A member of the RNA family "Glycine riboswitch aptamer" from Saccharopolyspora hordei, 94 nucleotides long. Taxonomically the source falls in Saccharopolyspora (Bacteria, Bacillati, Actinomycetota, Actinomycetes). Pairs were carried over by alignment from the consensus structure.

[Rfam]
RNA sequence: CGAACCCGAGCGGGAGAGACCUCGCAACGACGCGAGGCGCCGAAGGAGCAAGACUCCCCACAAACUCUCAGGCACCCAUGACCGUUCGGGCGAG
Numbered sequence: 001c002g003a004a005c006c007c008g009a010g011c012g013g014g015a016g017a018g019a020c021c022u023c024g025c026a027a028c029g030a031c032g033c034g035a036g037g038c039g040c041c042g043a044a045g046g047a048g049c050a051a052g053a054c055u056c057c058c059c060a061c062a063a064a065c066u067c068u069c070a071g072g073c074a075c076c077c078a079u080g081a082c083c084g085u086u087c088g089g090g091c092g093a094g
Stems, first nucleotide, its partner, number of pairs: 006089008020037004039073003042069002046067003052061001